[Rfam]
RNA sequence: GGACGAGCCUCUGGAGAGAUCCAUUUAGUUGGGCACCGAAGGAGAAAAACAGCAUUAAUGUAUGAUGCUGUUGAAACUCUCAGGUAAAAGGACAGAGGAUAGAAU
Number, nucleotide and partner (000 for none) at each position: 001g000002g000003a000004c000005g000006a100007g000008c098009c097010u096011c095012u094013g093014g000015a000016g000017a000018g000019a000020u033021c032022c031023a030024u000025u000026u000027a000028g000029u000030u023031g022032g021033g020034c000035a085036c084037c083038g081039a080040a000041g000042g079043a078044g077045a000046a000047a000048a072049a071050c070051a069052g068053c067054a066055u065056u064057a063058a000059u000060g000061u000062a000063u057064g056065a055066u054067g053068c052069u051070g050071u049072u048073g000074a000075a000076a000077c044078u043079c042080u039081c038082a000083g037084g036085u035086a000087a000088a000089a000090g000091g000092a000093c013094a012095g011096a010097g009098g008099a000100u006101a000102g000103a000104a000105u000
Rfam assigns this 105-nucleotide RNA sequence from Clostridium homopropionicum to the family "Glycine riboswitch aptamer". It scores 69 bits against the family's covariance model. The source organism's lineage runs through Bacteria, Bacillota, Clostridia, Eubacteriales and Clostridium homopropionicum. Its family is annotated with glycine biosynthetic process in the Gene Ontology.